[Rfam]
RNA: c-di-GMP-I riboswitch aptamer
RNA sequence: CCAUGAUAAUAGCAAACUUAUAGAAAUAUAAGGACGCAAAGCUAUGGGUCUAAGGAAGAAAUUCUAUGAUUGCCAGGUUGCCGAA
Numbered sequence: 001c002c003a004u005g006a007u008a009a010u011a012g013c014a015a016a017c018u019u020a021u022a023g024a025a026a027u028a029u030a031a032g033g034a035c036g037c038a039a040a041g042c043u044a045u046g047g048g049u050c051u052a053a054g055g056a057a058g059a060a061a062u063u064c065u066a067u068g069a070u071u072g073c074c075a076g077g078u079u080g081c082c083g084a085a
Stems, first nucleotide, its partner, number of pairs: 012037002017032006040079004045075003048070003055064003